DUF3577 RNA: a 103-nucleotide sequence. Pairs were carried over by alignment from the consensus structure, which is taken from published work.

[Rfam]
RNA sequence: CGUAUCGGAAAAGCGCAGGAAACUGCGUGAAACUCGCCUGCAAUUCCCGGCAUCACCGCGCAAGCGGUGUGGCGACUGCUCUUGCUGCUGCGGCAGUGAUUUU
Numbered sequence: 001c002g003u004a005u006c007g008g009a010a011a012a013g014c015g016c017a018g019g020a021a022a023c024u025g026c027g028u029g030a031a032a033c034u035c036g037c038c039u040g041c042a043a044u045u046c047c048c049g050g051c052a053u054c055a056c057c058g059c060g061c062a063a064g065c066g067g068u069g070u071g072g073c074g075a076c077u078g079c080u081c082u083u084g085c086u087g088c089u090g091c092g093g094c095a096g097u098g099a100u101u102u103u
Stems, first nucleotide, its partner, number of pairs: 013028006034075005054069006086098005